[Rfam]
RNA sequence: AAGCUGAAGAUGAGAAUUGGAGGAAGUUAAAUCCAAUUUAGCUUCUCACAAUAUUAGUGAUAAAUUGGGUUUAAUUUCCUCCAAUAUCUCAUCUCCGGCUU
Numbered sequence: 001a002a003g004c005u006g007a008a009g010a011u012g013a014g015a016a017u018u019g020g021a022g023g024a025a026g027u028u029a030a031a032u033c034c035a036a037u038u039u040a041g042c043u044u045c046u047c048a049c050a051a052u053a054u055u056a057g058u059g060a061u062a063a064a065u066u067g068g069g070u071u072u073a074a075u076u077u078c079c080u081c082c083a084a085u086a087u088c089u090c091a092u093c094u095c096c097g098g099c100u101u
Base pairs, nucleotide, nucleotide: 004098005097006096008094011091012090013089014088016085017084018083019082020081021080023078024077025076026075027074028073029072030071032069033068034067035066036065037064

MIR2275 microRNA precursor family: a 101-nucleotide RNA from Senna tora. It scores 63 bits against the family's covariance model. The source organism's lineage runs through Eukaryota, Streptophytina, Tracheophyta, eudicotyledons and Senna. Gene Ontology terms of the family: RISC complex and miRNA-mediated post-transcriptional gene silencing.